[Rfam]
RNA sequence: UUGCGUUAAGGAUUGAAGUGGCAUCCUUUUUUUGCUGCCACAUAUGGCAAAAAAAGAUAUAACUGAAAGCCUGACCUAUA
Numbered sequence: 001u002u003g004c005g006u007u008a009a010g011g012a013u014u015g016a017a018g019u020g021g022c023a024u025c026c027u028u029u030u031u032u033u034g035c036u037g038c039c040a041c042a043u044a045u046g047g048c049a050a051a052a053a054a055a056g057a058u059a060u061a062a063c064u065g066a067a068a069g070c071c072u073g074a075c076c077u078a079u080a
Stems, first nucleotide, its partner, number of pairs: 009072003013068002018063002023058003029053008
Dot-bracket structure: ........(((.((...((...(((...((((((((.........))))))))..)))...))...)).)))........
A member of the RNA family "Flavo-1 RNA", 80 nucleotides long.
It is annotated as a small RNA.
The base pairs follow the family's consensus structure, which is taken from published work.